[Rfam]
RNA sequence: ACAAACCUUCGGGGCAGGUGCAAUUCCUGACCGGCGGUGAUCAUCCGAACAAGGGAUGUAAGCCCGCGACUCAUAAUCUCAGAUUAUGACUGACUGAGUGAAAAUCUAAGGCCGACGGUAUAGUCCGGAUGGGAGAAGGUGAAA
Numbered sequence: 001a002c003a004a005a006c007c008u009u010c011g012g013g014g015c016a017g018g019u020g021c022a023a024u025u026c027c028u029g030a031c032c033g034g035c036g037g038u039g040a041u042c043a044u045c046c047g048a049a050c051a052a053g054g055g056a057u058g059u060a061a062g063c064c065c066g067c068g069a070c071u072c073a074u075a076a077u078c079u080c081a082g083a084u085u086a087u088g089a090c091u092g093a094c095u096g097a098g099u100g101a102a103a104a105u106c107u108a109a110g111g112c113c114g115a116c117g118g119u120a121u122a123g124u125c126c127g128g129a130u131g132g133g134a135g136a137a138g139g140u141g142a143a144a
Stems, first nucleotide, its partner, number of pairs: 005140006016028003030124002032114002034067004062112002071089002094110002097107002116127003
The family of this 144-nucleotide RNA sequence from Polycladospora coralii is "FMN riboswitch aptamer (RFN element)". Pairs were carried over by alignment from the consensus structure, which is taken from published work. The source organism's lineage runs through Bacteria, Bacillati, Caryophanales, Thermoactinomycetaceae and Polycladospora. About the family: The RFN element is a highly conserved domain that is found frequently in the 5'-untranslated regions of prokaryotic mRNAs that encode for flavin mononucleotide (FMN) biosynthesis and transport proteins.